[Rfam]
RNA sequence: UGGCUGUGAUGGCCUAUAGCAGAAGCGCAUUGUUUGAUUUCUGUACUUUGUGGUUUUAUCUCAUUUCGAAUGAGUGUCCGGUUCGAUCCCUGCGGUACGAAUUCCGAUGACUUGAGUAAUCAGUCUUUUAUUGGGUACAUGCAAUGAGUAACAAUAUCACUGGAGGGAAGCAAUUCAGCACAGUAUGUUACCCGUGGUGGAGGCGAAGCGGAUGGCACUAAUUUGGGACUUCUAGUCCAAUGAGGUUGUACAAGGUAUAUAGUGUGUCGACUCUAAAUU
Numbered sequence: 001u002g003g004c005u006g007u008g009a010u011g012g013c014c015u016a017u018a019g020c021a022g023a024a025g026c027g028c029a030u031u032g033u034u035u036g037a038u039u040u041c042u043g044u045a046c047u048u049u050g051u052g053g054u055u056u057u058a059u060c061u062c063a064u065u066u067c068g069a070a071u072g073a074g075u076g077u078c079c080g081g082u083u084c085g086a087u088c089c090c091u092g093c094g095g096u097a098c099g100a101a102u103u104c105c106g107a108u109g110a111c112u113u114g115a116g117u118a119a120u121c122a123g124u125c126u127u128u129u130a131u132u133g134g135g136u137a138c139a140u141g142c143a144a145u146g147a148g149u150a151a152c153a154a155u156a157u158c159a160c161u162g163g164a165g166g167g168a169a170g171c172a173a174u175u176c177a178g179c180a181c182a183g184u185a186u187g188u189u190a191c192c193c194g195u196g197g198u199g200g201a202g203g204c205g206a207a208g209c210g211g212a213u214g215g216c217a218c219u220a221a222u223u224u225g226g227g228a229c230u231u232c233u234a235g236u237c238c239a240a241u242g243a244g245g246u247u248g249u250a251c252a253a254g255g256u257a258u259a260u261a262g263u264g265u266g267u268c269g270a271c272u273c274u275a276a277a278u279u
Stems, first nucleotide, its partner, number of pairs: 002014003017276001019274001021272002028266003033261001036260001037256002049252003056248001058246008066227002068224004073219005078211003082207004087201003090197006097140001099138001101136004106128002109125004114121002142146001148191006159184004167176003
RNA: Fungal signal recognition particle RNA
Organism: Hemisphaericaspora subhashii